U5 spliceosomal RNA: a 119-nucleotide RNA from Cuscuta campestris. The family's consensus secondary structure is taken from published work. Lineage of the source: Eukaryota > Euphyllophyta > Spermatophyta > eudicotyledons > Cuscuta sect. Cleistogrammica. On this family, see Zwieb, Nucleic Acids Res 1997: "The uRNA database". The family's RNA type in Rfam is spliceosomal small nuclear RNA.
RNA sequence: AGCCACGCAAUAAGUACAAAGCGAACUAUUCUUUCGCCUUUUACUAAAGAAUACCGUGUGCUUGUUGCAAUUAGUGGCAUACACUCAUUUUUGGAGGGUCUUUUUCCUUUGGAAGAGCC
Numbered sequence: 001a002g003c004c005a006c007g008c009a010a011u012a013a014g015u016a017c018a019a020a021g022c023g024a025a026c027u028a029u030u031c032u033u034u035c036g037c038c039u040u041u042u043a044c045u046a047a048a049g050a051a052u053a054c055c056g057u058g059u060g061c062u063u064g065u066u067g068c069a070a071u072u073a074g075u076g077g078c079a080u081a082c083a084c085u086c087a088u089u090u091u092u093g094g095a096g097g098g099u100c101u102u103u104u105u106c107c108u109u110u111g112g113a114a115g116a117g118c119c
Base pairs, nucleotide, nucleotide: 003077004076005075006074008067009066010065011064012063013062014061015060016059017058018057027053028052029051030050031049032048033047034046097118099116100115101114102113